RNA: Group II catalytic intron D1-D4-7
Organism: Streptomyces sp. F001
RNA sequence: CCAGGCCAGUGUCCAGGGCCUGUCCCCUGCGUCCACAUGCGUCGCUGGUAACGGCGGGGUGUGAAGCUGGACGAUCACGCUCAAGAGCGUCCCGGCCAUCGGGAGGCAACAAGUAAAGGGG
Number, nucleotide and partner (000 for none) at each position: 001c000002c022003a021004g020005g019006c018007c017008a000009g000010u000011g000012u000013c000014c000015a000016g000017g007018g006019c005020c004021u003022g002023u000024c000025c000026c000027c000028u000029g000030c000031g072032u071033c070034c069035a068036c063037a062038u061039g060040c059041g000042u057043c056044g055045c054046u053047g052048g000049u000050a000051a000052c047053g046054g045055c044056g043057g042058g000059g040060u039061g038062u037063g036064a000065a000066g000067c000068u035069g034070g033071a032072c031073g000074a000075u000076c000077a090078c089079g088080c087081u086082c000083a000084a000085g000086a081087g080088c079089g078090u077091c113092c000093c000094g110095g000096c000097c000098a000099u106100c105101g000102g000103g000104a000105g100106g099107c000108a000109a000110c094111a000112a000113g091114u000115a000116a000117a000118g000119g000120g000121g000